[Rfam]
RNA: MIR403 microRNA precursor family
Organism: Olea europaea
RNA sequence: GCAUAUUUCGGGUUUGUGCGUGAAUCUAAUGUGAAAUCACACACCUGGGUUUUCAGGGAUAUGGCAGUUAAUUUGGGGUGUAUUUAUUUGUUAGAUUCACGCACAAACUCGUAAUACGUCU
Numbered sequence: 001g002c003a004u005a006u007u008u009c010g011g012g013u014u015u016g017u018g019c020g021u022g023a024a025u026c027u028a029a030u031g032u033g034a035a036a037u038c039a040c041a042c043a044c045c046u047g048g049g050u051u052u053u054c055a056g057g058g059a060u061a062u063g064g065c066a067g068u069u070a071a072u073u074u075g076g077g078g079u080g081u082a083u084u085u086a087u088u089u090g091u092u093a094g095a096u097u098c099a100c101g102c103a104c105a106a107a108c109u110c111g112u113a114a115u116a117c118g119u120c121u
Stems, first nucleotide, its partner, number of pairs: 001119002005115003011109016028092003053078001